RNA sequence: UAACAUGAUACGCUUAGUUCCAUAUGGAAGCGGGGGAACCAAAUCAUGGGGCGAAUUCCGAAAGGAUAGGAUAACUCUUUCAAUCCGAGCCCGUCAGCUAACCUCGUAGGCGUUGAAAGAGGAGAC
Numbered sequence: 001u002a003a004c005a006u007g008a009u010a011c012g013c014u015u016a017g018u019u020c021c022a023u024a025u026g027g028a029a030g031c032g033g034g035g036g037a038a039c040c041a042a043a044u045c046a047u048g049g050g051g052c053g054a055a056u057u058c059c060g061a062a063a064g065g066a067u068a069g070g071a072u073a074a075c076u077c078u079u080u081c082a083a084u085c086c087g088a089g090c091c092c093g094u095c096a097g098c099u100a101a102c103c104u105c106g107u108a109g110g111c112g113u114u115g116a117a118a119g120a121g122g123a124g125a126c
Stems, first nucleotide, its partner, number of pairs: 011112004018029003030107006040048002049092003057066003069086004
The family of this 126-nucleotide RNA sequence from Geosporobacter ferrireducens is "c-di-AMP riboswitch aptamer (ydaO/yuaA leader)".
The organism belongs to Geosporobacter, within Bacteria.
Its family is annotated with cyclic-di-AMP binding and regulation of gene expression in the Gene Ontology.